Plastid-psbA-1 3UTR RNA: a 119-nucleotide sequence from Zizania palustris. Taxonomically the source falls in Zizania (Eukaryota, Tracheophyta, Euphyllophyta, Poales). Pairs were carried over by alignment from the consensus structure, which was predicted with LocARNA. Rfam describes the family as follows. Plastid psbA-1 is a non-coding RNA (ncRNA) present in plastids.
[Rfam]
RNA sequence: UUGAAGUUCCAUCUCUUAAUGGAUAAGGCUUUUCCCCUAACAUAUAGCAAAUUUGGGAGGAAGGAAAGCUAGAAAUACCCAAUAUCUUGUUCCAGCAAGAUAUUGGGUAUUUCUUUUUU
Numbered sequence: 001u002u003g004a005a006g007u008u009c010c011a012u013c014u015c016u017u018a019a020u021g022g023a024u025a026a027g028g029c030u031u032u033u034c035c036c037c038u039a040a041c042a043u044a045u046a047g048c049a050a051a052u053u054u055g056g057g058a059g060g061a062a063g064g065a066a067a068g069c070u071a072g073a074a075a076u077a078c079c080c081a082a083u084a085u086c087u088u089g090u091u092c093c094a095g096c097a098a099g100a101u102a103u104u105g106g107g108u109a110u111u112u113c114u115u116u117u118u119u
Stems, first nucleotide, its partner, number of pairs: 008023005066119003071114008080105003084101005